[Rfam]
RNA sequence: GAAGUGAAUAACAACGAACCGCAGACAGCAGGUGUCAAGCAUGCUUGACUUAAUACCCUGCCGAGGAUCAAGAAGUUUCACCUUACUCAGGUAACUUAUGCCCUCGUAGACUGUCUGCGGGGGUUUUCUUCUUGAUCU
Numbered sequence: 001g002a003a004g005u006g007a008a009u010a011a012c013a014a015c016g017a018a019c020c021g022c023a024g025a026c027a028g029c030a031g032g033u034g035u036c037a038a039g040c041a042u043g044c045u046u047g048a049c050u051u052a053a054u055a056c057c058c059u060g061c062c063g064a065g066g067a068u069c070a071a072g073a074a075g076u077u078u079c080a081c082c083u084u085a086c087u088c089a090g091g092u093a094a095c096u097u098a099u100g101c102c103c104u105c106g107u108a109g110a111c112u113g114u115c116u117g118c119g120g121g122g123g124u125u126u127u128c129u130u131c132u133u134g135a136u137c138u
Base pairs, nucleotide, nucleotide: 028061029060030059031058032057034049035048036047037046038045039044101123102122103121104120105119106118107117108116109115110114
A member of the RNA family "Ribosomal protein L10 leader" from Tumebacillus algifaecis, 138 nucleotides long. This family is a putative r-protein leader autoregulatory structure found in B. subtilis and other low-GC Gram-positive bacteria. The source organism's lineage runs through Bacteria, Bacillati, Bacillota, Bacilli and Tumebacillus. It scores 63 bits against the family's covariance model.